[Rfam]
A member of the RNA family "Selenocysteine insertion sequence 1" from Larimichthys crocea, 63 nucleotides long. About the family: The incorporation of selenocysteine into a protein sequence is directed by an in-frame UGA codon (usually a stop codon) within the coding region of the mRNA. Selenoprotein mRNAs contain a conserved secondary structure in the 3' UTR that is required for the distinction of UGA stop from UGA selenocysteine. The match comes from Rfam's covariance-model search (38 bits). A reference for the family is Walczak et al. (1996), "A novel RNA structural motif in the selenocysteine insertion element of eukaryotic selenoprotein mRNAs", RNA. Rfam classes the family as a cis-regulatory element. NCBI's taxonomy places the organism under Eukaryota, Teleostomi, Eurypterygia, Ctenosquamata, Larimichthys.
RNA sequence: GUGUGUUUUAAUGAAGACAUGUCUCUAAACUCUGCAGAGGGGACAACUCUGAUGCUUGCACAC
Numbered sequence: 001g002u003g004u005g006u007u008u009u010a011a012u013g014a015a016g017a018c019a020u021g022u023c024u025c026u027a028a029a030c031u032c033u034g035c036a037g038a039g040g041g042g043a044c045a046a047c048u049c050u051g052a053u054g055c056u057u058g059c060a061c062a063c
Stems, first nucleotide, its partner, number of pairs: 001063005016049002020045006030039003